RNA sequence: GUAGAGCUAAGGGACACUGUGGAAACGGCAGGUCAGGCCUGAUCGGAAACAGCAGCAGGUGAGUCCGCCUUAUGUGAAGGAUCGGCUGAAACACGAGGAAAUACUGAGCCAACGCAAGACGGUAGCCGAACAGUAGCAAC
Numbered sequence: 001g002u003a004g005a006g007c008u009a010a011g012g013g014a015c016a017c018u019g020u021g022g023a024a025a026c027g028g029c030a031g032g033u034c035a036g037g038c039c040u041g042a043u044c045g046g047a048a049a050c051a052g053c054a055g056c057a058g059g060u061g062a063g064u065c066c067g068c069c070u071u072a073u074g075u076g077a078a079g080g081a082u083c084g085g086c087u088g089a090a091a092c093a094c095g096a097g098g099a100a101a102u103a104c105u106g107a108g109c110c111a112a113c114g115c116a117a118g119a120c121g122g123u124a125g126c127c128g129a130a131c132a133g134u135a136g137c138a139a140c
Stems, first nucleotide, its partner, number of pairs: 012066004018057003031044005068098002071095001073093003082129004102135004108123003
Notes:
poplar-1 RNA: a 140-nucleotide RNA sequence. Pairs were carried over by alignment from the consensus structure, which is taken from published work. It is annotated as a small RNA.